[Rfam]
RNA sequence: UGCAGGAGGAACCCAAUAUGACGGAGUCAUAUUUAAGGAUGGUUCCGACGACUUGCCAACCAGCGAAGGCGAGGGACAACACAAGAU
Number, nucleotide and partner (000 for none) at each position: 001u000002g000003c000004a000005g000006g000007a000008g046009g045010a044011a043012c042013c041014c000015a000016a032017u031018a030019u029020g028021a027022c000023g000024g000025a000026g000027u021028c020029a019030u018031a017032u016033u000034u000035a000036a000037g000038g000039a000040u000041g013042g012043u011044u010045c009046c008047g000048a000049c000050g000051a000052c000053u000054u000055g077056c000057c075058a000059a000060c073061c000062a000063g070064c069065g000066a000067a000068g000069g064070c063071g000072a000073g060074g000075g057076a000077c055078a000079a000080c000081a000082c000083a000084a000085g000086a000087u000